Small nucleolar RNA SNORD101: a 72-nucleotide sequence from Vulpes vulpes. Clan: SNORD101 clan. The match comes from Rfam's covariance-model search (81 bits). The family's consensus secondary structure was predicted with PFOLD.
RNA sequence: GUUUGGAUGAUGACUUGAAUCGUCGGAUACCCCUUCACUCUUGAUGAGUGAGACCUGAGCAGUCUGACAAAC
Dot-bracket structure: (((((..............................................................)))))